[Rfam]
RNA sequence: GAAAAACAUUAUUGAAUCCCUCAUAUAUGCUAGAGAAUUGGCUCUAGUGUUUCUACCCGGCACCGUAAUGCUGGACUAUGUGGGAAAGCAACUUUUGG
Numbered sequence: 001g002a003a004a005a006a007c008a009u010u011a012u013u014g015a016a017u018c019c020c021u022c023a024u025a026u027a028u029g030c031u032a033g034a035g036a037a038u039u040g041g042c043u044c045u046a047g048u049g050u051u052u053c054u055a056c057c058c059g060g061c062a063c064c065g066u067a068a069u070g071c072u073g074g075a076c077u078a079u080g081u082g083g084g085a086a087a088g089c090a091a092c093u094u095u096u097g098g
Base pairs, nucleotide, nucleotide: 018084019083020082022080023079024078025077029048030047031046032045033044034043035042057074058073059072060071061070062069
RNA: Purine riboswitch aptamer